RNA sequence: GGUGACGCCACCGAUAUGUCGGACAGGGGUUCAAUUCCCCUCACCUCCAUUCAUGGGGGUGCCAUGGUUUAGACGGGGUAUAAGGAGUGUUACUGAAACCUGCUUGGAUAAGCAAACCAUAGAUGCAAA
Numbered sequence: 001g002g003u004g005a006c007g008c009c010a011c012c013g014a015u016a017u018g019u020c021g022g023a024c025a026g027g028g029g030u031u032c033a034a035u036u037c038c039c040c041u042c043a044c045c046u047c048c049a050u051u052c053a054u055g056g057g058g059g060u061g062c063c064a065u066g067g068u069u070u071a072g073a074c075g076g077g078g079u080a081u082a083a084g085g086a087g088u089g090u091u092a093c094u095g096a097a098a099c100c101u102g103c104u105u106g107g108a109u110a111a112g113c114a115a116a117c118c119a120u121a122g123a124u125g126c127a128a129a
Stems, first nucleotide, its partner, number of pairs: 001094005015080003019076003025041005042061007
Source information:
Shown here is a 129-nucleotide RNA sequence from Proteobacteria bacterium TMED61, a member of the family "permuted transfer-messenger RNA". It is one of the family's seed sequences. Rfam links the family to the GO term RNA catabolic process. A reference for the family is Felden et al. (1997), "Probing the structure of the Escherichia coli 10Sa RNA (tmRNA)", RNA.